[Rfam]
RNA sequence: UGGCUACAAAAUAACUUAUUAUGUAGCCACUUUGAGUUACGAUAAUUACUAUGUUAAUUUACGAGAUUAUAGUAACUCCUUACUAAGUGAUUUACUAUAACGUUAUGGUAAAUAUCUCCGUGUGUUAUAGUAACACAACUAUCGUAAAUAUGUAUUGACAUUAUCGUAAAUGGAGGCGGCUAAAGAAUAACUUAUUUUGUAGCUG
Numbered sequence: 001u002g003g004c005u006a007c008a009a010a011a012u013a014a015c016u017u018a019u020u021a022u023g024u025a026g027c028c029a030c031u032u033u034g035a036g037u038u039a040c041g042a043u044a045a046u047u048a049c050u051a052u053g054u055u056a057a058u059u060u061a062c063g064a065g066a067u068u069a070u071a072g073u074a075a076c077u078c079c080u081u082a083c084u085a086a087g088u089g090a091u092u093u094a095c096u097a098u099a100a101c102g103u104u105a106u107g108g109u110a111a112a113u114a115u116c117u118c119c120g121u122g123u124g125u126u127a128u129a130g131u132a133a134c135a136c137a138a139c140u141a142u143c144g145u146a147a148a149u150a151u152g153u154a155u156u157g158a159c160a161u162u163a164u165c166g167u168a169a170a171u172g173g174a175g176g177c178g179g180c181u182a183a184a185g186a187a188u189a190a191c192u193u194a195u196u197u198u199g200u201a202g203c204u205g
Base pairs, nucleotide, nucleotide: 001205002204003203004202005201006200007199008198009197010196011195012194013193014192016190017189018188019187020186022184024182025181026180027179028178030176031175032174033173037169038168039167040166041165042164043163044162045161046160062157069155070154071153072151073150074149080147081146082145083144087142088141089140091138092137093132094131095130096129097128098127099126100125101124102123103122107117108116
RNA: MIR6217 microRNA precursor family